[Rfam]
RNA sequence: GUUCGUAUAUCGCGGGUUGUAAUUGAUGAAGGCAAAACCGCGGCACUGGUCGAUCACGUGGAACAACGGGUUCCAGUCGAACAUUGCAAGCAUGAAGCUGGGCAGGGUGUUGGCCACGAACAUCUUGCCGCUCGCGAUCAUGUUGGCGCGCUG
Numbered sequence: 001g002u003u004c005g006u007a008u009a010u011c012g013c014g015g016g017u018u019g020u021a022a023u024u025g026a027u028g029a030a031g032g033c034a035a036a037a038c039c040g041c042g043g044c045a046c047u048g049g050u051c052g053a054u055c056a057c058g059u060g061g062a063a064c065a066a067c068g069g070g071u072u073c074c075a076g077u078c079g080a081a082c083a084u085u086g087c088a089a090g091c092a093u094g095a096a097g098c099u100g101g102g103c104a105g106g107g108u109g110u111u112g113g114c115c116a117c118g119a120a121c122a123u124c125u126u127g128c129c130g131c132u133c134g135c136g137a138u139c140a141u142g143u144u145g146g147c148g149c150g151c152u153g
Stems, first nucleotide, its partner, number of pairs: 002035002006032001008030001013025003040054001041052004064153002067150002070082004086147002089144006098134001100131001102129001103127006110119003
RNA: Ruegeria cis2 sRNA
Organism: Sulfitobacter sp. THAF37